[Rfam]
RNA sequence: CCCGCCACUGCAUUCUCGCGACUAAUGAAAAAAAUAGCAGGGUUAUCUCUUUCAUUAGCCGCGCGAACCUCUGCAAUGCAAGAUCGCUGACGAUAUUUCAACGGCUUACUACAUUAACCUCAUUUGCCGUUGCUUCCUAGAAGAAAGGGGCCAGAUUUGGCCCCUUUAC
Numbered sequence: 001c002c003c004g005c006c007a008c009u010g011c012a013u014u015c016u017c018g019c020g021a022c023u024a025a026u027g028a029a030a031a032a033a034a035u036a037g038c039a040g041g042g043u044u045a046u047c048u049c050u051u052u053c054a055u056u057a058g059c060c061g062c063g064c065g066a067a068c069c070u071c072u073g074c075a076a077u078g079c080a081a082g083a084u085c086g087c088u089g090a091c092g093a094u095a096u097u098u099c100a101a102c103g104g105c106u107u108a109c110u111a112c113a114u115u116a117a118c119c120u121c122a123u124u125u126g127c128c129g130u131u132g133c134u135u136c137c138u139a140g141a142a143g144a145a146a147g148g149g150g151c152c153a154g155a156u157u158u159g160g161c162c163c164c165u166u167u168a169c
Base pairs, nucleotide, nucleotide: 001082004079006078007077010074011073012072017065018064019063020062022058023057024056025055026054027053028052088122089121147164148163149162150161151160152159
Shown here is a 169-nucleotide sequence from Enterobacillus tribolii, a member of the family "SraG RNA". By type it is a small RNA. The literature on the family includes a 2016 paper in RNA by Fontaine et al., "The small RNA SraG participates in PNPase homeostasis". From the family's description: This RNA was discovered in E. coli during a large scale screen. Evidence was found for specific cleavage of this RNA. The organism belongs to Enterobacillus, within Bacteria.